[Rfam]
RNA sequence: UCUCAUCAGGAACGCGGUCACCUCCUCCCGACCGUUACCUGAAUGUGUUUUGCAGGAGCACCUCCUCCCGCUUCUGCAACUCUCAUUGAGCCGGACCGCUACCUCCUCCCAGCGGUCCGGCUUUUUU
Numbered sequence: 001u002c003u004c005a006u007c008a009g010g011a012a013c014g015c016g017g018u019c020a021c022c023u024c025c026u027c028c029c030g031a032c033c034g035u036u037a038c039c040u041g042a043a044u045g046u047g048u049u050u051u052g053c054a055g056g057a058g059c060a061c062c063u064c065c066u067c068c069c070g071c072u073u074c075u076g077c078a079a080c081u082c083u084c085a086u087u088g089a090g091c092c093g094g095a096c097c098g099c100u101a102c103c104u105c106c107u108c109c110c111a112g113c114g115g116u117c118c119g120g121c122u123u124u125u126u127u
Stems, first nucleotide, its partner, number of pairs: 007041003012036001014035004050079008089122011

Shown here is a 127-nucleotide RNA sequence, a member of the family "Alphaproteobacterial ar14".
The family's RNA type in Rfam is small RNA.
The base pairs follow the family's consensus structure.
It scores 60 bits against the family's covariance model.
On this family, see del Val et al., RNA Biol 2012: "A survey of sRNA families in alpha-proteobacteria".
Rfam describes the family as follows. Smr14C2 was renamed NfeR1 (Nodule Formation Efficiency RNA) highly expressed in salt stress and during the symbiotic interaction on legume roots.